[Rfam]
Shown here is a 99-nucleotide RNA from Subdoligranulum sp. APC924/74, a member of the family "Bacterial small signal recognition particle RNA".
The family's RNA type in Rfam is non-coding RNA gene.
Pairs were carried over by alignment from the consensus structure, which is taken from published work.
Gene Ontology terms of the family: signal recognition particle, plasma membrane targeting and SRP-dependent cotranslational protein targeting to membrane, signal sequence recognition.
RNA sequence: AUGUGGGCCCCGUGCGCAGGAGCCCUGUGAACCAUGUCAGGCGGGGAACCGAGCAGCAUUAAGCGGUGGUCUCCUGGUGCUGCGGUCAGUCCGCAUUCG
Numbered sequence: 001a002u003g004u005g006g007g008c009c010c011c012g013u014g015c016g017c018a019g020g021a022g023c024c025c026u027g028u029g030a031a032c033c034a035u036g037u038c039a040g041g042c043g044g045g046g047a048a049c050c051g052a053g054c055a056g057c058a059u060u061a062a063g064c065g066g067u068g069g070u071c072u073c074c075u076g077g078u079g080c081u082g083c084g085g086u087c088a089g090u091c092c093g094c095a096u097u098c099g
Stems, first nucleotide, its partner, number of pairs: 004093005010085005015077001017076006023068001025066004034059004042051003